[Rfam]
RNA sequence: UGCAUCCUUCGGGGCAGGGUGAAAUUCCCGACCGGCGGUGAUGGCUGAUCUAUGGCCUCAGUCCGUGACCCGCGCAAGCGGUUGAUUCGGUGAAACUCCGAAACCGACAGUAUAGUCUGGAUGGGAGAAGGAUGAG
Numbered sequence: 001u002g003c004a005u006c007c008u009u010c011g012g013g014g015c016a017g018g019g020u021g022a023a024a025u026u027c028c029c030g031a032c033c034g035g036c037g038g039u040g041a042u043g044g045c046u047g048a049u050c051u052a053u054g055g056c057c058u059c060a061g062u063c064c065g066u067g068a069c070c071c072g073c074g075c076a077a078g079c080g081g082u083u084g085a086u087u088c089g090g091u092g093a094a095a096c097u098c099c100g101a102a103a104c105c106g107a108c109a110g111u112a113u114a115g116u117c118u119g120g121a122u123g124g125g126a127g128a129a130g131g132a133u134g135a136g
Stems, first nucleotide, its partner, number of pairs: 003134008017029003031116002033106002035066004061104002070081002086102005108119003
A member of the RNA family "FMN riboswitch aptamer (RFN element)" from Thermoactinomyces mirandus, 136 nucleotides long. The family's consensus secondary structure is taken from published work. Rfam links the family to the GO term FMN binding.